[Rfam]
RNA sequence: CGCCCACCACAGGGGUGCUCCGUAACGUCGGGGCUGAGAGCGCAGCGACAAGCUGCGGAACCCUCAAGCUGAUCUGGAUAAUACCAGCGGAGCGAGGCGGACGAUGUUUUCUG
Numbered sequence: 001c002g003c004c005c006a007c008c009a010c011a012g013g014g015g016u017g018c019u020c021c022g023u024a025a026c027g028u029c030g031g032g033g034c035u036g037a038g039a040g041c042g043c044a045g046c047g048a049c050a051a052g053c054u055g056c057g058g059a060a061c062c063c064u065c066a067a068g069c070u071g072a073u074c075u076g077g078a079u080a081a082u083a084c085c086a087g088c089g090g091a092g093c094g095a096g097g098c099g100g101a102c103g104a105u106g107u108u109u110u111c112u113g
Stems, first nucleotide, its partner, number of pairs: 007100002010097001011064004016058001017034005041057005068093003074087004
Rfam assigns this 113-nucleotide RNA sequence from Tianweitania sediminis to the family "TPP riboswitch aptamer (THI element)". Vitamin B(1) in its active form thiamin pyrophosphate (TPP) is an essential coenzyme that is synthesised by coupling of pyrimidine and thiazole moieties in bacteria. The previously detected thiamin-regulatory element, thi box was extended, resulting in a new, highly conserved RNA secondary structure, the THI element, which is widely distributed in eubacteria and also occurs in some archaea. Analysis of operon structures identified a large number of new candidate thiamin-regulated genes, mostly transporters, in various prokaryotic organisms. The THI element is a riboswitch that directly binds to TPP to regulate gene expression through a variety of mechanisms in archaea, bacteria and eukaryotes. through a variety of mechanisms in archaea, bacteria and eukaryotes. Tandem TPP riboswitches have been reported where both TPP riboswitches respond independently to TPP. The structure of TPP riboswitch has been reported for Escherichia coli and Arabidopsis thaliana. The family's consensus secondary structure is taken from published work. The organism belongs to Tianweitania, within Bacteria.